[Rfam]
RNA sequence: GUCUCAGCGAGAACCGUGUGAAUCAAGUAGUAUAGUGAUUCACGCGGUUCUCGCAAGUUGAG
Numbered sequence: 001g002u003c004u005c006a007g008c009g010a011g012a013a014c015c016g017u018g019u020g021a022a023u024c025a026a027g028u029a030g031u032a033u034a035g036u037g038a039u040u041c042a043c044g045c046g047g048u049u050c051u052c053g054c055a056a057g058u059u060g061a062g
Stems, first nucleotide, its partner, number of pairs: 007054019
Plastid-ccsA-ndhD-2 3UTR RNA: a 62-nucleotide sequence. Rfam describes the family as follows. Plastid ccsA-ndhD-2 is a non-coding RNA (ncRNA) recognised in plastids. The family has 421 seed sequences and 875 matches in Rfam 15.1. The sequence is in the family's curated seed alignment. Pairs were carried over by alignment from the consensus structure, which was predicted with LocARNA.